RNA sequence: UCUGCACCCAAACCCAAAGGUCACGCCGUGGUCAGUGGCGUGAUUUUGUCUGGUGUGCAAACAGGAAAUGGUCCUUGUCGCCUUUCUCUGAUGCUGCGGUGCCUUUGAAAGUGAAUUCAAGGUCCAACAUGC
Numbered sequence: 001u002c003u004g005c006a007c008c009c010a011a012a013c014c015c016a017a018a019g020g021u022c023a024c025g026c027c028g029u030g031g032u033c034a035g036u037g038g039c040g041u042g043a044u045u046u047u048g049u050c051u052g053g054u055g056u057g058c059a060a061a062c063a064g065g066a067a068a069u070g071g072u073c074c075u076u077g078u079c080g081c082c083u084u085u086c087u088c089u090g091a092u093g094c095u096g097c098g099g100u101g102c103c104u105u106u107g108a109a110a111g112u113g114a115a116u117u118c119a120a121g122g123u124c125c126a127a128c129a130u131g132c
Stems, first nucleotide, its partner, number of pairs: 003059005009053001019045010070125002073122004082111005090105002093102002
Dot-bracket structure: ..(((((.(.........((((((((((.......)))))))))).......).)))))..........((.((((.....(((((...((.((......)).)).))))).......)))).)).......